[Rfam]
RNA sequence: GCAAGUUCAGCCCGACCCCCCGGGGCUGAACUCGACGACCCUCGCCUCCUCCCCCCUGGCGAGGGUCGUCCUCG
Numbered sequence: 001g002c003a004a005g006u007u008c009a010g011c012c013c014g015a016c017c018c019c020c021c022g023g024g025g026c027u028g029a030a031c032u033c034g035a036c037g038a039c040c041c042u043c044g045c046c047u048c049c050u051c052c053c054c055c056c057u058g059g060c061g062a063g064g065g066u067c068g069u070c071c072u073c074g
Stems, first nucleotide, its partner, number of pairs: 004032010034070013
RNA: 6C RNA
Organism: Rhodococcus sp. 1168